[Rfam]
RNA sequence: ACGCAUUCUCAGGGCGGGGUGAAAUUCCCCACCGGCGGUAUGUGGGGAACCACGAGCCCGCGAGCGCCUUUUGCAUGAAGCGAUAGGGUCAGCAGAUCAGGUGCGAUGCCUGAGCCGACGGUGAUAGUCCGGAUGAAAGAGAAUGCGU
Numbered sequence: 001a002c003g004c005a006u007u008c009u010c011a012g013g014g015c016g017g018g019g020u021g022a023a024a025u026u027c028c029c030c031a032c033c034g035g036c037g038g039u040a041u042g043u044g045g046g047g048a049a050c051c052a053c054g055a056g057c058c059c060g061c062g063a064g065c066g067c068c069u070u071u072u073g074c075a076u077g078a079a080g081c082g083a084u085a086g087g088g089u090c091a092g093c094a095g096a097u098c099a100g101g102u103g104c105g106a107u108g109c110c111u112g113a114g115c116c117g118a119c120g121g122u123g124a125u126a127g128u129c130c131g132g133a134u135g136a137a138a139g140a141g142a143a144u145g146c147g148u
Stems, first nucleotide, its partner, number of pairs: 003146008017029003031128002033117002035061004056115002064093002097113005119131003
RNA: FMN riboswitch aptamer (RFN element)
Organism: Yoonia litorea